The family of this 87-nucleotide sequence from Scophthalmus maximus is "mir-204 microRNA precursor family".
Taxonomically the source falls in Scophthalmus (Eukaryota, Bilateria, Actinopterygii, Clupeocephala).
The match comes from Rfam's covariance-model search (91 bits).
A reference for the family is Chen et al. (2005), "The developmental miRNA profiles of zebrafish as determined by small RNA cloning", Genes Dev.
The family's consensus secondary structure was predicted with RNAalifold.
RNA sequence: AUGUGACCUGUGGGUUUCCCUUUGUCAUCCUAUGCCUGGAGCGUCUGUGAGGCAGGGAAAGCAAAGGGAAGCUCAGCCGUCACCUCU
Dot-bracket structure: ................((((((.((..((((..((((............)))).))))..)).))))))..................